[Rfam]
RNA sequence: GCCGGCAAGUGAUGUGCAAAUCUAUAUCCUACACACUCAAUGGAAAAUUUCCAUGUGUUGACUAAUAAUCUCCGCUUAUUAUCUGAUGCCUUG
Number, nucleotide and partner (000 for none) at each position: 001g000002c000003c000004g090005g089006c088007a087008a000009g000010u000011g000012a000013u000014g000015u000016g000017c000018a000019a000020a000021u000022c000023u000024a000025u000026a000027u000028c000029c000030u000031a000032c000033a000034c000035a000036c000037u000038c000039a000040a000041u000042g000043g000044a000045a000046a000047a000048u000049u000050u000051c000052c000053a000054u000055g000056u000057g000058u000059u000060g000061a000062c000063u000064a000065a000066u000067a000068a000069u000070c000071u000072c000073c000074g000075c000076u000077u000078a000079u000080u000081a000082u000083c000084u000085g000086a000087u007088g006089c005090c004091u000092u000093g000
RNA: Small nucleolar RNA R16
Organism: Zizania palustris